The family of this 96-nucleotide RNA sequence from Agarivorans albus is "Guanidine-I riboswitch aptamer". Pairs were carried over by alignment from the consensus structure. Taxonomically the source falls in Agarivorans albus (Bacteria, Pseudomonadota, Gammaproteobacteria, Alteromonadales).
RNA sequence: GCAAUAGACAUCUAGGGUUCCGGCUGCAACGCAGUGUCUGGACCGAGAGUUGUCAACCUCAUAGAGGUUACACGGAGGGAUAAAAGCCCGGGAGAU
Dot-bracket structure: ......((((.(..((...((((((((...)))))..).)).))....).))))((((((...)))))).(.[...(((.......))).)..]..